c-di-GMP-I riboswitch aptamer: an 86-nucleotide RNA from Paenibacillus sp. FSL H7-0331. Taxonomically the source falls in Paenibacillus (Bacteria, Bacillati, Bacillota, Paenibacillaceae). The match comes from Rfam's covariance-model search (59 bits). Clan: c-di-GMP_I riboswitch clan.

RNA sequence: UAGGAAAAAAGGCAAACCUGAUCGAAAGACAGGGACGCAAAGCCACGGGUCUUCUGCACUAGUGCAAUGAUCGGCAGGUUACCCUC
Numbered sequence: 001u002a003g004g005a006a007a008a009a010a011g012g013c014a015a016a017c018c019u020g021a022u023c024g025a026a027a028g029a030c031a032g033g034g035a036c037g038c039a040a041a042g043c044c045a046c047g048g049g050u051c052u053u054c055u056g057c058a059c060u061a062g063u064g065c066a067a068u069g070a071u072c073g074g075c076a077g078g079u080u081a082c083c084c085u086c
Base pairs, nucleotide, nucleotide: 012038013037017033018032019031020030022029023028041080042079043078044077047075049071050070051069056065057064058063